RNA sequence: AACGUUCAUCUCGCCACAAACCAUGGAGAGACGGAAGUAGGUCCAAACAACCGAAGGAACGCACU
Numbered sequence: 001a002a003c004g005u006u007c008a009u010c011u012c013g014c015c016a017c018a019a020a021c022c023a024u025g026g027a028g029a030g031a032c033g034g035a036a037g038u039a040g041g042u043c044c045a046a047a048c049a050a051c052c053g054a055a056g057g058a059a060c061g062c063a064c065u
Stems, first nucleotide, its partner, number of pairs: 003061005009031004034062001040052003